[Rfam]
RNA sequence: UGAUUUAGCCUCUCCUAGGCUUUGUCUGUCAGUGAAAAAACGAGACAUAGCCUAGAAUAGGUUAGGUCGGGGCUCGUUC
Numbered sequence: 001u002g003a004u005u006u007a008g009c010c011u012c013u014c015c016u017a018g019g020c021u022u023u024g025u026c027u028g029u030c031a032g033u034g035a036a037a038a039a040a041c042g043a044g045a046c047a048u049a050g051c052c053u054a055g056a057a058u059a060g061g062u063u064a065g066g067u068c069g070g071g072g073c074u075c076g077u078u079c
Stems, first nucleotide, its partner, number of pairs: 003067009018052004023047005